[Rfam]
RNA sequence: AAUCACACUAUCGAUGAAUGAAUUCACCUGUGAGAUGAUGUGGUUGUUCCAUCUAGGAUGAGGACGUGGUUGUUCCACACUUGAAGAUGACAUGUCCUCGUCUUAGGUGAAACAGUCACGUCAUCUCGCGGGUGAAUCCAUUCAUUGAUAGUGUGGUU
Numbered sequence: 001a002a003u004c005a006c007a008c009u010a011u012c013g014a015u016g017a018a019u020g021a022a023u024u025c026a027c028c029u030g031u032g033a034g035a036u037g038a039u040g041u042g043g044u045u046g047u048u049c050c051a052u053c054u055a056g057g058a059u060g061a062g063g064a065c066g067u068g069g070u071u072g073u074u075c076c077a078c079a080c081u082u083g084a085a086g087a088u089g090a091c092a093u094g095u096c097c098u099c100g101u102c103u104u105a106g107g108u109g110a111a112a113c114a115g116u117c118a119c120g121u122c123a124u125c126u127c128g129c130g131g132g133u134g135a136a137u138c139c140a141u142u143c144a145u146u147g148a149u150a151g152u153g154u155g156g157u158u
Base pairs, nucleotide, nucleotide: 001158002157003156004155005154006153007152009150010149011148012147013146014145015144017142018141019140022137023136024135025134026133027132028131030129031128032127033126035124036123037122038121039120041118042117043116044115045114046113047112048111051108052107054105055104057102058101063096064095065094066093067092068091
Shown here is a 158-nucleotide RNA from Oryza rufipogon, a member of the family "MIR807 microRNA precursor family". A reference for the family is Luo et al. (2006), "Rice embryogenic calli express a unique set of microRNAs, suggesting regulatory roles of microRNAs in plant post-embryogenic development", FEBS Lett. A search with the family's covariance model found it, with a score of 134 bits.